[Rfam]
RNA sequence: AAAGAAUCUAGAGGUUGCGAAACAUCAUGAUUAUCAAACGAGCAUAAGGAUGCGACGACGUUGAUAGUGAGGGAUUUUCGCCGAAAUGUUAAAUUAGGACCUUACCUGUUUAAUGUUGGGGCUAUAGUGAAUAACUAUAGCACUGUCUCAGUCAAUCUGAGGUGCGCUACGAUUUGA
Numbered sequence: 001a002a003a004g005a006a007u008c009u010a011g012a013g014g015u016u017g018c019g020a021a022a023c024a025u026c027a028u029g030a031u032u033a034u035c036a037a038a039c040g041a042g043c044a045u046a047a048g049g050a051u052g053c054g055a056c057g058a059c060g061u062u063g064a065u066a067g068u069g070a071g072g073g074a075u076u077u078u079c080g081c082c083g084a085a086a087u088g089u090u091a092a093a094u095u096a097g098g099a100c101c102u103u104a105c106c107u108g109u110u111u112a113a114u115g116u117u118g119g120g121g122c123u124a125u126a127g128u129g130a131a132u133a134a135c136u137a138u139a140g141c142a143c144u145g146u147c148u149c150a151g152u153c154a155a156u157c158u159g160a161g162g163u164g165c166g167c168u169a170c171g172a173u174u175u176g177a
Stems, first nucleotide, its partner, number of pairs: 007171001009169003017081006024075003032066006085117010118144002121141008146162006

A member of the RNA family "Lysine riboswitch aptamer" from Vagococcus carniphilus, 177 nucleotides long. Rfam 15.1 lists 3,224 matches to the family in 1,923 species.